The record is a 76-nucleotide sequence from Granulicatella balaenopterae, which matches "Fluoride riboswitch aptamer (crcB RNA motif)" in Rfam. Rfam 15.1 lists 2,293 matches to the family in 1,982 species. The source organism's lineage runs through Bacteria, Bacillati, Bacillota, Carnobacteriaceae and Granulicatella. On this family, see Baker et al., Science 2012: "Widespread genetic switches and toxicity resistance proteins for fluoride".
RNA sequence: GUGCAAAAAGGGUAUGAUGAUCACCCUUGUAAUUCAGUUACUAAACCGCCCCUAGGCUAAUGACAUCUAUGGCUUU
Numbered sequence: 001g002u003g004c005a006a007a008a009a010g011g012g013u014a015u016g017a018u019g020a021u022c023a024c025c026c027u028u029g030u031a032a033u034u035c036a037g038u039u040a041c042u043a044a045a046c047c048g049c050c051c052c053u054a055g056g057c058u059a060a061u062g063a064c065a066u067c068u069a070u071g072g073c074u075u076u
Base pairs, nucleotide, nucleotide: 010026011025012024013023016067017066018065019064021062048057049056050055